[Rfam]
RNA: Mammalian CPEB3 ribozyme
Organism: Alligator mississippiensis
RNA sequence: AGUUGCAGGUUUGAGGCCAUACCAGAAGUACUCAUGGUGCGGCCCUGUCAGAAUAUGCAAAUUCUGCUAAAUAUCUU
Numbered sequence: 001a002g003u004u005g006c007a008g009g010u011u012u013g014a015g016g017c018c019a020u021a022c023c024a025g026a027a028g029u030a031c032u033c034a035u036g037g038u039g040c041g042g043c044c045c046u047g048u049c050a051g052a053a054u055a056u057g058c059a060a061a062u063u064c065u066g067c068u069a070a071a072u073a074u075c076u077u
Stems, first nucleotide, its partner, number of pairs: 013045001015044004021077001024074001026072001028040003049066006